[Rfam]
RNA sequence: GUACUACCAUGAGUUCCCUGCAAGCACUUCAUGAGGCCCAAUUCUGAGGGCUACUGUGAAGUGUUUGGGGGAACUCUUGGUGUUAC
Numbered sequence: 001g002u003a004c005u006a007c008c009a010u011g012a013g014u015u016c017c018c019u020g021c022a023a024g025c026a027c028u029u030c031a032u033g034a035g036g037c038c039c040a041a042u043u044c045u046g047a048g049g050g051c052u053a054c055u056g057u058g059a060a061g062u063g064u065u066u067g068g069g070g071g072a073a074c075u076c077u078u079g080g081u082g083u084u085a086c
Base pairs, nucleotide, nucleotide: 005082006081007080008079009078011076012075013074014073015072016071017070018069019068022066023065024064025063026062027061028060029059030058031057032056033055036052

This 86-nucleotide RNA from Brachypodium distachyon belongs to the Rfam family "mir-395 microRNA precursor family". Rfam's curators write: mir-395 was identified in both Arabidopsis thaliana and Oryza sativa computationally and was later experimentally verified. mir-395 is thought to target mRNAs coding for ATP sulphurylases. The mature sequence is excised from the 3' arm of the hairpin. The literature on the family includes a 2004 paper in Mol Cell by Jones-Rhoades and Bartel, "Computational Identification of Plant MicroRNAs and Their Targets, Including a Stress-Induced miRNA". The family has 25 seed sequences and 2,798 matches in Rfam 15.1.